[Rfam]
A member of the RNA family "Mason-Pfizer monkey virus packaging signal" from Nannospalax galili, 279 nucleotides long. It is annotated as a cis-regulatory element. About the family: This family represents a group of sequences that are related to the Mason-Pfizer monkey virus (MPMV) packaging signal. The packaging signal is located in the 5' UTR and is required for specific RNA encapsidation. The match comes from Rfam's covariance-model search (176 bits). The family's consensus secondary structure was predicted with PFOLD. Its family is annotated with viral genome packaging in the Gene Ontology. The organism belongs to Nannospalax, within Eukaryota. On this family, see Mustafa et al., Virus Res 2004: "Mutational analysis of the predicted secondary RNA structure of the Mason-Pfizer monkey virus packaging signal".

RNA sequence: UGGCGCCCAACGUGGGGCUGGAUACUGGGGGUACAUCGUGAGGGAGACAACGGAGAAAAAGGAAUGCACUCGCUAAAUCUUAAGCAAUUCGGAGACGCGCCGCGGAAGCCUGCCGCGACUGAACUGAAGGUAAGUUGUGCCGUCCAAUCAUGGGGCAAGGAUUAAGCCAGAAUCAGAUUUAUGUUACGCAGUUGAGGGAGGCUCUCAAGACAAGAGGAGUAAAGGUUAAGACUGUGGAUUUAUUUCAUUUCUUUGAUUUUGUGAAGGACAUUUGUCCUU
Numbered sequence: 001u002g003g004c005g006c007c008c009a010a011c012g013u014g015g016g017g018c019u020g021g022a023u024a025c026u027g028g029g030g031g032u033a034c035a036u037c038g039u040g041a042g043g044g045a046g047a048c049a050a051c052g053g054a055g056a057a058a059a060a061g062g063a064a065u066g067c068a069c070u071c072g073c074u075a076a077a078u079c080u081u082a083a084g085c086a087a088u089u090c091g092g093a094g095a096c097g098c099g100c101c102g103c104g105g106a107a108g109c110c111u112g113c114c115g116c117g118a119c120u121g122a123a124c125u126g127a128a129g130g131u132a133a134g135u136u137g138u139g140c141c142g143u144c145c146a147a148u149c150a151u152g153g154g155g156c157a158a159g160g161a162u163u164a165a166g167c168c169a170g171a172a173u174c175a176g177a178u179u180u181a182u183g184u185u186a187c188g189c190a191g192u193u194g195a196g197g198g199a200g201g202c203u204c205u206c207a208a209g210a211c212a213a214g215a216g217g218a219g220u221a222a223a224g225g226u227u228a229a230g231a232c233u234g235u236g237g238a239u240u241u242a243u244u245u246c247a248u249u250u251c252u253u254u255g256a257u258u259u260u261g262u263g264a265a266g267g268a269c270a271u272u273u274g275u276c277c278u279u
Stems, first nucleotide, its partner, number of pairs: 006030003012025003036050001038048002084131002089127002096121002101117005138157003143154004164205001166202003214254006223241005264279006